Notes
Rfam assigns this 153-nucleotide sequence from Oryza sativa to the family "MIR807 microRNA precursor family". A search with the family's covariance model found it, with a score of 125 bits. A reference for the family is Luo et al. (2006), "Rice embryogenic calli express a unique set of microRNAs, suggesting regulatory roles of microRNAs in plant post-embryogenic development", FEBS Lett. Rfam 15.1 lists 1,514 matches to the family in 13 species.
[Rfam]
RNA sequence: AACCACACUAUCAAUGGAUAGAUUCACCCGUGAAAUGACGCAGUUGUUUCACCUAGGACAAGGACAUGGCAUCCUAUUACCAGCCAUCGCACUUGUCCUAGAUGGAACAACCACGUCAUAUCAUGGGUGAAUCUAUCCAUUGAUAGUGUGGUU
Numbered sequence: 001a002a003c004c005a006c007a008c009u010a011u012c013a014a015u016g017g018a019u020a021g022a023u024u025c026a027c028c029c030g031u032g033a034a035a036u037g038a039c040g041c042a043g044u045u046g047u048u049u050c051a052c053c054u055a056g057g058a059c060a061a062g063g064a065c066a067u068g069g070c071a072u073c074c075u076a077u078u079a080c081c082a083g084c085c086a087u088c089g090c091a092c093u094u095g096u097c098c099u100a101g102a103u104g105g106a107a108c109a110a111c112c113a114c115g116u117c118a119u120a121u122c123a124u125g126g127g128u129g130a131a132u133c134u135a136u137c138c139a140u141u142g143a144u145a146g147u148g149u150g151g152u153u
Stems, first nucleotide, its partner, number of pairs: 001153007009145007017137003021133008030124004035119005043111006051103001054100002057097002065089001069085001